[Rfam]
RNA sequence: UGCCCGCCACAACGGCUUCCUGACGUGGUGGGGUAAACCUCAAUGGAGCA
Numbered sequence: 001u002g003c004c005c006g007c008c009a010c011a012a013c014g015g016c017u018u019c020c021u022g023a024c025g026u027g028g029u030g031g032g033g034u035a036a037a038c039c040u041c042a043a044u045g046g047a048g049c050a
Base pairs, nucleotide, nucleotide: 004031005030006029007028008027009026010025013022014021015049016048017047019046020045